[Rfam]
RNA sequence: ACUUUCCUUGUCAUGGGGUGGCAUGGGAUAUUCAAUGAACGUGUAGUGAGCAUAUCCCUGCUAACACCAUAAUCAACACAUCCGCACCGCCUGAGCUUCUUGCUCAGGGUUUGGUGCAAUUUUUGGAACC
Numbered sequence: 001a002c003u004u005u006c007c008u009u010g011u012c013a014u015g016g017g018g019u020g021g022c023a024u025g026g027g028a029u030a031u032u033c034a035a036u037g038a039a040c041g042u043g044u045a046g047u048g049a050g051c052a053u054a055u056c057c058c059u060g061c062u063a064a065c066a067c068c069a070u071a072a073u074c075a076a077c078a079c080a081u082c083c084g085c086a087c088c089g090c091c092u093g094a095g096c097u098u099c100u101u102g103c104u105c106a107g108g109g110u111u112u113g114g115u116g117c118a119a120u121u122u123u124u125g126g127a128a129c130c
Stems, first nucleotide, its partner, number of pairs: 006018004021061003027056005033050001039047002084117006090108006
The record is a 130-nucleotide RNA sequence from Esox lucius, which matches "U4atac minor spliceosomal RNA" in Rfam. Taxonomically the source falls in Esox (Eukaryota, Teleostomi, Actinopterygii, Clupeocephala). For this family Rfam cites "Domains of human U4atac snRNA required for U12-dependent splicing in vivo" (Shukla et al., Nucleic Acids Res, 2002). Its Rfam clan is "U4 clan". The family's RNA type in Rfam is spliceosomal small nuclear RNA.